[Rfam]
RNA sequence: UGGCUAUAAAAUAACUUAUUCUGUAGCCACUUUGAGUUAUGAUAAUUACUAUGUUAAUUUACGAGAUUAUAGUAACUUCAUACUAAAUAGUUUACUAUAACGUUAUGGUAAAUAUCUUCAUGUGUUAUAGUAACCCAACUAUCGUAAAUAUGUAUUGAUAUUAUUGUAGAUUAGUAUAUAAAACUAUCGUAAAUGAAGGUGGCUACGAAAUAACUUAUUUUAUAGCUG
Number, nucleotide and partner (000 for none) at each position: 001u228002g227003g226004c225005u224006a223007u222008a221009a220010a219011a218012u217013a216014a215015c000016u213017u212018a211019u210020u209021c000022u207023g206024u205025a204026g203027c202028c201029a200030c199031u198032u197033u196034g000035a000036g000037u192038u191039a190040u189041g188042a187043u186044a185045a000046u183047u182048a000049c000050u178051a177052u176053g175054u174055u173056a172057a171058u170059u169060u168061a167062c166063g000064a000065g165066a164067u163068u000069a161070u160071a159072g000073u000074a155075a000076c000077u000078u000079c000080a000081u146082a145083c144084u000085a000086a000087a142088u141089a140090g139091u138092u137093u132094a131095c130096u129097a128098u127099a126100a125101c124102g123103u122104u000105a000106u000107g117108g116109u000110a000111a000112a000113u000114a000115u000116c108117u107118u000119c000120a000121u000122g103123u102124g101125u100126u099127a098128u097129a096130g095131u094132a093133a000134c000135c000136c000137a092138a091139c090140u089141a088142u087143c000144g083145u082146a081147a000148a000149u000150a000151u000152g000153u000154a000155u074156u000157g000158a000159u071160a070161u069162u000163a067164u066165u065166g062167u061168a060169g059170a058171u057172u056173a055174g054175u053176a052177u051178a050179u000180a000181a000182a047183a046184c000185u044186a043187u042188c041189g040190u039191a038192a037193a000194u000195g000196a033197a032198g031199g030200u029201g028202g027203c026204u025205a024206c023207g022208a000209a020210a019211u018212a017213a016214c000215u014216u013217a012218u011219u010220u009221u008222a007223u006224a005225g004226c003227u002228g001
About this RNA: MIR6217 microRNA precursor family: a 228-nucleotide RNA from Miscanthus lutarioriparius. The organism belongs to Miscanthus, within Eukaryota. Its family is annotated with RISC complex and miRNA-mediated post-transcriptional gene silencing in the Gene Ontology.